[Rfam]
RNA sequence: CGAGCUGGCCAGACAAUCGCGUCGUACUUUAGUGCGAGGAGGAAAGUCCGGGCUCCAAAGGGUGGAACGCCAGGUAACGCCUGGGGGGCGAGAGCCUACGGAAAGUGCAGCAGAGAGUAGACCGCCGAUGGCCCUAGUGGCACAGGUAAGGGUGAAAGGGUGCGGUAAGAGCGCACCGCGCGUCUGGUAACAGUUCGUGGCACGGUAAACCCCGUUCGGAGCAAGACCAAAUAGGAAUCCUACAGGUGUGACCCGCACUGGAUUCGGGUAGGUCGCUUGAGGUGUGUGGUGACACAUAUCCCAGAUGAAUGAUUGUCCUCGACAGAACCCGGCUUAUCGGCCAGCUCAAUUC
Numbered sequence: 001c002g003a004g005c006u007g008g009c010c011a012g013a014c015a016a017u018c019g020c021g022u023c024g025u026a027c028u029u030u031a032g033u034g035c036g037a038g039g040a041g042g043a044a045a046g047u048c049c050g051g052g053c054u055c056c057a058a059a060g061g062g063u064g065g066a067a068c069g070c071c072a073g074g075u076a077a078c079g080c081c082u083g084g085g086g087g088g089c090g091a092g093a094g095c096c097u098a099c100g101g102a103a104a105g106u107g108c109a110g111c112a113g114a115g116a117g118u119a120g121a122c123c124g125c126c127g128a129u130g131g132c133c134c135u136a137g138u139g140g141c142a143c144a145g146g147u148a149a150g151g152g153u154g155a156a157a158g159g160g161u162g163c164g165g166u167a168a169g170a171g172c173g174c175a176c177c178g179c180g181c182g183u184c185u186g187g188u189a190a191c192a193g194u195u196c197g198u199g200g201c202a203c204g205g206u207a208a209a210c211c212c213c214g215u216u217c218g219g220a221g222c223a224a225g226a227c228c229a230a231a232u233a234g235g236a237a238u239c240c241u242a243c244a245g246g247u248g249u250g251a252c253c254c255g256c257a258c259u260g261g262a263u264u265c266g267g268g269u270a271g272g273u274c275g276c277u278u279g280a281g282g283u284g285u286g287u288g289g290u291g292a293c294a295c296a297u298a299u300c301c302c303a304g305a306u307g308a309a310u311g312a313u314u315g316u317c318c319u320c321g322a323c324a325g326a327a328c329c330c331g332g333c334u335u336a337u338c339g340g341c342c343a344g345c346u347c348a349a350u351u352c
Stems, first nucleotide, its partner, number of pairs: 002347009011337001012317007020039001022037006044335003048332005053221004060254004065217005070084005085099001086097004100212002105210002107206002122151002124147003129142002132139001159177006178201001179199004184193003225274004235265006245259005281300008
A member of the RNA family "Bacterial RNase P class A" from Teredinibacter turnerae, 352 nucleotides long. The organism belongs to Teredinibacter turnerae, within Bacteria. The match comes from Rfam's covariance-model search (332 bits). The base pairs follow the family's consensus structure, which is taken from published work. The family's RNA type in Rfam is ribozyme.